[Rfam]
RNA sequence: AACAUCCUUCGGGGUCGGGUGAAAGUCCCAACCGACGGUGAUAAAGCGAAUGCUUUUCAGUCCGUGACCCGGUAAGCGCUGCAGGCGUGGACGGUGGAUUCAGUGUAAGUCUGAAGCCGACAGUAACAGUCUGGAUGGGAGAAGGAAAAC
Dot-bracket structure: ....((((((......(((.......))).[[((((((.....................[[))))...((......................))....(((((.......)))))]])).(((.....]]))).......))))))....

The family of this 150-nucleotide sequence from Marinococcus luteus is "FMN riboswitch aptamer (RFN element)". The source organism's lineage runs through Bacteria, Bacillota, Caryophanales, Bacillaceae and Marinococcus. Rfam links the family to the GO term FMN binding.